[Rfam]
Shown here is a 102-nucleotide RNA from Sporosarcina sp. Te-1, a member of the family "Purine riboswitch aptamer".
The organism belongs to Sporosarcina, within Bacteria.
A search with the family's covariance model found it, with a score of 77 bits.
RNA sequence: AGAACAAAACGAUGCAGCCCUCAUAUAUGUCUGAUAAUACGGUUCGGACGUCUCUACCAAGCCACCUUAAAUGGCUUGUCUAUGAAGGUGGGAAUGGUUAUA
Numbered sequence: 001a002g003a004a005c006a007a008a009a010c011g012a013u014g015c016a017g018c019c020c021u022c023a024u025a026u027a028u029g030u031c032u033g034a035u036a037a038u039a040c041g042g043u044u045c046g047g048a049c050g051u052c053u054c055u056a057c058c059a060a061g062c063c064a065c066c067u068u069a070a071a072u073g074g075c076u077u078g079u080c081u082a083u084g085a086a087g088g089u090g091g092g093a094a095u096g097g098u099u100a101u102a
Stems, first nucleotide, its partner, number of pairs: 018088002021085005029049006058078007